[Rfam]
RNA sequence: ACCGUCCUCGUCCAGGGGUGGUAGUCGGUCCGUGAGCGUUAAGUGAGGCCGGCUAUGCCGACGCCCUGAGUCGAAGUCGAUCGCCUGUGCACUACUUUAUUCUGCACAGGCAAUUUUUGGAGCC
Numbered sequence: 001a002c003c004g005u006c007c008u009c010g011u012c013c014a015g016g017g018g019u020g021g022u023a024g025u026c027g028g029u030c031c032g033u034g035a036g037c038g039u040u041a042a043g044u045g046a047g048g049c050c051g052g053c054u055a056u057g058c059c060g061a062c063g064c065c066c067u068g069a070g071u072c073g074a075a076g077u078c079g080a081u082c083g084c085c086u087g088u089g090c091a092c093u094a095c096u097u098u099a100u101u102c103u104g105c106a107c108a109g110g111c112a113a114u115u116u117u118u119g120g121a122g123c124c
Base pairs, nucleotide, nucleotide: 006018007017008016009015020058024053025052026051027050028049029048030047036044037043083111084110085109086108087107088106089105090104091103094100
Dot-bracket structure: .....((((.....)))).(...(((((((.....((.....))..)))))))....)........................(((((((((..(.....)..))))))))).............

Rfam assigns this 124-nucleotide RNA from Tropilaelaps mercedesae to the family "U4atac minor spliceosomal RNA". Taxonomically the source falls in Tropilaelaps (Eukaryota, Arthropoda, Arachnida, Mesostigmata). For this family Rfam cites "Evolutionary conservation of minor U12-type spliceosome between plants and humans" (Lorkovic et al., RNA, 2005). Rfam describes the family as follows. U4atac is an essential component of the minor U12-type spliceosome complex which is required for removal of the rarer class of eukaryotic introns (AT-AC, U12-type). The family's consensus secondary structure is taken from published work. The match comes from Rfam's covariance-model search (57 bits).